[Rfam]
RNA sequence: GGGUCAAUGAUGUGAACUCAUAUGGUUAAGAGAAAUGAUGGCCUAAAAAUCAUGUUCAAUAGGAUUAUGCUGAGGCCC
Dot-bracket structure: ((((((.((..........................................................)).))..))))
Shown here is a 78-nucleotide RNA from Neophocaena asiaeorientalis, a member of the family "Small nucleolar RNA SNORD115". The source organism's lineage runs through Eukaryota, Craniata, Gnathostomata, Eutheria and Neophocaena asiaeorientalis. It is annotated as a C/D-box small nucleolar RNA.